[Rfam]
RNA sequence: UUCGGUUCAGCUCAACCCCCCGGAGCUGAACCCUUGCGGCCCCCGCCCUCCCCCCUGGCGGGGGCCGCCCUCU
Numbered sequence: 001u002u003c004g005g006u007u008c009a010g011c012u013c014a015a016c017c018c019c020c021c022g023g024a025g026c027u028g029a030a031c032c033c034u035u036g037c038g039g040c041c042c043c044c045g046c047c048c049u050c051c052c053c054c055c056u057g058g059c060g061g062g063g064g065c066c067g068c069c070c071u072c073u
Stems, first nucleotide, its partner, number of pairs: 004032010036068012
Dot-bracket structure: ...((((((((((.........))))))))))...((((((((((((.........)))))))))))).....
RNA: 6C RNA
Organism: Nakamurella multipartita